[Rfam]
RNA sequence: GGGCGCACGGUGGAUGCCUUGGCACCAGGAGCCGAUGAAGGACGUGGGAGACCGCGAUAGUCCUCGAGGAGCUGUCAACCGAGCUGUGAUUCGAGGGUGUCCGAAUGGGGAAACCCGGCAGCAGUUAUGUGCUGUCACCCGCACCUGAACACAUAGGGUGUGUGGAGGGAACGUGGGGAAGUGAAACAUCUCAGUACCCACAGGAAGAGAAAACAAGAGUGAUUCCGUGAGUAGUGGCGAGCGAAAGCGGAUGAGGCUAAACCAGUGACGUGUGAUACCCGGCAGGGGUUGCGUCGUUGGGGUCGUGGGACGGCUAUUCGUCAGUCUGCCGGCUGAUGGGGAAGUAAGAAAAUCAUGUGGUUAGUCGAAGGUUCUGGGAAGGACCGGCGUAGAGGGUGAGACUCCCGUAGACGAAAACCUGUGAUCUUCCUUUAGUUGUUCCCAAGUAGCACGGGGCCCGUGAAAUCUCGUGUGAAUCUGGCGGGACCACCCGCUAAGCCUAAAUACUCCCUGGUGACCGAUAGUGCACUAGUACCGUGAGGGAAAGGUGAAAAGUACCCCGGGAGGGGAGUGAAAUAGUACCUGAAACCGUGUGCCUAC
Numbered sequence: 001g002g003g004c005g006c007a008c009g010g011u012g013g014a015u016g017c018c019u020u021g022g023c024a025c026c027a028g029g030a031g032c033c034g035a036u037g038a039a040g041g042a043c044g045u046g047g048g049a050g051a052c053c054g055c056g057a058u059a060g061u062c063c064u065c066g067a068g069g070a071g072c073u074g075u076c077a078a079c080c081g082a083g084c085u086g087u088g089a090u091u092c093g094a095g096g097g098u099g100u101c102c103g104a105a106u107g108g109g110g111a112a113a114c115c116c117g118g119c120a121g122c123a124g125u126u127a128u129g130u131g132c133u134g135u136c137a138c139c140c141g142c143a144c145c146u147g148a149a150c151a152c153a154u155a156g157g158g159u160g161u162g163u164g165g166a167g168g169g170a171a172c173g174u175g176g177g178g179a180a181g182u183g184a185a186a187c188a189u190c191u192c193a194g195u196a197c198c199c200a201c202a203g204g205a206a207g208a209g210a211a212a213a214c215a216a217g218a219g220u221g222a223u224u225c226c227g228u229g230a231g232u233a234g235u236g237g238c239g240a241g242c243g244a245a246a247g248c249g250g251a252u253g254a255g256g257c258u259a260a261a262c263c264a265g266u267g268a269c270g271u272g273u274g275a276u277a278c279c280c281g282g283c284a285g286g287g288g289u290u291g292c293g294u295c296g297u298u299g300g301g302g303u304c305g306u307g308g309g310a311c312g313g314c315u316a317u318u319c320g321u322c323a324g325u326c327u328g329c330c331g332g333c334u335g336a337u338g339g340g341g342a343a344g345u346a347a348g349a350a351a352a353u354c355a356u357g358u359g360g361u362u363a364g365u366c367g368a369a370g371g372u373u374c375u376g377g378g379a380a381g382g383a384c385c386g387g388c389g390u391a392g393a394g395g396g397u398g399a400g401a402c403u404c405c406c407g408u409a410g411a412c413g414a415a416a417a418c419c420u421g422u423g424a425u426c427u428u429c430c431u432u433u434a435g436u437u438g439u440u441c442c443c444a445a446g447u448a449g450c451a452c453g454g455g456g457c458c459c460g461u462g463a464a465a466u467c468u469c470g471u472g473u474g475a476a477u478c479u480g481g482c483g484g485g486a487c488c489a490c491c492c493g494c495u496a497a498g499c500c501u502a503a504a505u506a507c508u509c510c511c512u513g514g515u516g517a518c519c520g521a522u523a524g525u526g527c528a529c530u531a532g533u534a535c536c537g538u539g540a541g542g543g544a545a546a547g548g549u550g551a552a553a554a555g556u557a558c559c560c561c562g563g564g565a566g567g568g569g570a571g572u573g574a575a576a577u578a579g580u581a582c583c584u585g586a587a588a589c590c591g592u593g594u595g596c597c598u599a600c
Stems, first nucleotide, its partner, number of pairs: 001598010016583001017548002021519002023516007030508002032168002040102003043056003062096007071084003107116003117136007138165002140162007172203001173201005183190002213220002223504001224251005234242002254501004262300011307443003312437005349428002352425005359419004364412003370385005388392001394406003449473008480495005535542002558569004
Dot-bracket structure: ((((((((((.....(((..(((((((((((((......((((((........))).....(((((((..(((........))).....)))))))...)))....(((....)))(((((((......))))))).(((((((((.........))))))).)).))...((((((.....((....))......))))).).........((....))..((((((.....((.....))....)))))..((((....(((((((((((.................)))))))))))......(((..(((((................................((.(((((..((((.(((...(((((......)))))..(...).(((.......)))...)))...)))).))))).))....)))))...))).....((((((((.........))))))))......(((((......)))))..))))..)..)).))))))).))...............((....))....)).........((((....)))).............).....))))))))))..